The record is a 74-nucleotide sequence from Cnephaeus nilssonii, which matches "mir-9193 microRNA precursor family" in Rfam. NCBI's taxonomy places the organism under Eukaryota, Craniata, Mammalia, Chiroptera, Cnephaeus.
RNA sequence: CUUGGAGAGGGCGAGUCCCUCAGCCUGGAUUUCGAGAGGGUGCAGGCCAGGCCAAGGGACCCCACCGGUGCAGA
Numbered sequence: 001c002u003u004g005g006a007g008a009g010g011g012c013g014a015g016u017c018c019c020u021c022a023g024c025c026u027g028g029a030u031u032u033c034g035a036g037a038g039g040g041u042g043c044a045g046g047c048c049a050g051g052c053c054a055a056g057g058g059a060c061c062c063c064a065c066c067g068g069u070g071c072a073g074a
Stems, first nucleotide, its partner, number of pairs: 003072002006069001009066002013062001015060006023052003027048002030045002033042002